This 142-nucleotide sequence from Sphaerimonospora thailandensis belongs to the Rfam family "SAM riboswitch aptamer (S box leader)".
Nucleotides: 142
Base pairs, nucleotide, nucleotide: 001142003140004139005138006137007136008135013042014041015040016039017038021031022030023029025106026105027104028103043098044097045096046095048094049093051089052088053087054086055085102134107131108130109129110128111127112126113125114124115123116122
Number, partner (000 for none) and nucleotide at each position: 001142u002000g003140c004139u005138c006137a007136u008135c009000c010000a011000g012000a013042g014041g015040g016039g017038u018000g019000g020000a021031g022030g023029g024000a025106c026105c027104g028103g029023c030022c031021c032000u033000g034000c035000g036000a037000a038017g039016c040015c041014c042013c043098g044097g045096c046095a047000a048094c049093c050000c051089u052088c053087c054086c055085g056000u057000g058000a059000c060000c061000g062000a063000a064000c065000u066000c067000g068000u069000g070000a071000c072000c073000a074000c075000g076000a077000g078000g079000c080000c081000c082000g083000g084000c085055c086054g087053g088052g089051a090000c091000a092000g093049g094048g095046u096045g097044c098043c099000a100000a101000u102134u103028c104027c105026g106025g107131g108130c109129u110128c111127g112126c113125g114124g115123u116122c117000a118000a119000g120000g121000u122116g123115g124114u125113c126112g127111c128110g129109a130108g131107c132000g133000a134102a135008g136007a137006u138005g139004a140003g141000g142001g
The SAM riboswitch is found upstream of a number of genes which code for proteins involved in methionine or cysteine biosynthesis in Gram-positive bacteria.
A search with the family's covariance model found it, with a score of 74 bits.